This 88-nucleotide sequence from Ananas comosus belongs to the Rfam family "Plastid-rpl20 3UTR RNA". Plastid rpl20 is a non-coding RNA (ncRNA) recognised in plastids. It was found in the three prime untranslated region (3UTR) of rpl20 gene, it presence in the 3UTR region sugest a role in transcript maduration. A reference for the family is Richter et al. (2023), "Retrograde signaling in plants: A critical review focusing on the GUN pathway and beyond", Plant Commun.
RNA sequence: ACAGAAUUCCCCGGAGAAUGAACUCCGGGAAGAUAUAGAAUAAAAAUAAAUUAAGAUAAGUAGUAGAGAUGAACGAACGUGUUUCAAU
Dot-bracket structure: ......((.(((((((......))))))))).......................................((((......))))....

By type it is a cis-regulatory element. The family's consensus secondary structure was predicted with LocARNA.